RNA sequence: CGGCGAGCCGUGUCAAUCGGACGUGACAGGGAUGGUGAACGCAGGAUUUUUUCCGAUUUCAUCCUGCGACCAACGAAGCGGUAGGCGAGCACCCUACCUGUCCGGCUC
Numbered sequence: 001c002g003g004c005g006a007g008c009c010g011u012g013u014c015a016a017u018c019g020g021a022c023g024u025g026a027c028a029g030g031g032a033u034g035g036u037g038a039a040c041g042c043a044g045g046a047u048u049u050u051u052u053c054c055g056a057u058u059u060c061a062u063c064c065u066g067c068g069a070c071c072a073a074c075g076a077a078g079c080g081g082u083a084g085g086c087g088a089g090c091a092c093c094c095u096a097c098c099u100g101u102c103c104g105g106c107u108c
Base pairs, nucleotide, nucleotide: 006107007106008105009104011023012022013021014020025102026101027100028099029098030097034093035092036091037090040068041067042066043065044064045063046062069082070081071080
Shown here is a 108-nucleotide sequence from Caulobacter radicis, a member of the family "Rhizobiales sRNA Atu_At1". The literature on the family includes a 2012 paper in RNA Biol by Wilms et al., "Deep sequencing uncovers numerous small RNAs on all four replicons of the plant pathogen Agrobacterium tumefaciens". By type it is a small RNA.